[Rfam]
RNA sequence: GAGCUGUGAUGAUAAGUAUUGUGAUGUUCGGUAACAUUACUUCUCCUGAAAUACUGGAUGAAAAUAUGCCUCUGAGCUC
Numbered sequence: 001g002a003g004c005u006g007u008g009a010u011g012a013u014a015a016g017u018a019u020u021g022u023g024a025u026g027u028u029c030g031g032u033a034a035c036a037u038u039a040c041u042u043c044u045c046c047u048g049a050a051a052u053a054c055u056g057g058a059u060g061a062a063a064a065u066a067u068g069c070c071u072c073u074g075a076g077c078u079c
Base pairs, nucleotide, nucleotide: 001079002078003077004076
Dot-bracket structure: ((((.......................................................................))))